Rfam assigns this 84-nucleotide sequence from Tenacibaculum piscium to the family "Flavo-1 RNA". Rfam classes the family as a small RNA. A search with the family's covariance model found it, with a score of 44 bits. Pairs were carried over by alignment from the consensus structure, which is taken from published work.
RNA sequence: ACUUAGCCCUGAUUGAAGCAAUUGUUUGAGCUCUUUUUUUGAUUUUUCUUCAAAAAAAAGCGAGUGCGGAAAGCGGGAAUAGCU
Numbered sequence: 001a002c003u004u005a006g007c008c009c010u011g012a013u014u015g016a017a018g019c020a021a022u023u024g025u026u027u028g029a030g031c032u033c034u035u036u037u038u039u040u041g042a043u044u045u046u047u048c049u050u051c052a053a054a055a056a057a058a059a060g061c062g063a064g065u066g067c068g069g070a071a072a073g074c075g076g077g078a079a080u081a082g083c084u
Base pairs, nucleotide, nucleotide: 009076010075011074013072014071018067019066030061031060032059036056037055038054039053040052041051042050